[Rfam]
RNA sequence: AUCAAAGCUGUCUAGGGUUCCGUUGCUGGCAGGCUGUAUCACCGCCGGUAAGUCUGGUCCGAGAGAGAGCGUAUAGAAGCUGCGUUUGAUUGCAACUUCUAUAUACACGGAAGGAUAAAAGCCUGGGAGAU
Numbered sequence: 001a002u003c004a005a006a007g008c009u010g011u012c013u014a015g016g017g018u019u020c021c022g023u024u025g026c027u028g029g030c031a032g033g034c035u036g037u038a039u040c041a042c043c044g045c046c047g048g049u050a051a052g053u054c055u056g057g058u059c060c061g062a063g064a065g066a067g068a069g070c071g072u073a074u075a076g077a078a079g080c081u082g083c084g085u086u087u088g089a090u091u092g093c094a095a096c097u098u099c100u101a102u103a104u105a106c107a108c109g110g111a112a113g114g115a116u117a118a119a120a121g122c123c124u125g126g127g128a129g130a131u
Base pairs, nucleotide, nucleotide: 007070008069009068011066012065015060016059020057021056022054023051024050025049026048027047028046029045030044071104072103073102074101075100076099077098078097106126108129112124113123114122
RNA: Guanidine-I riboswitch aptamer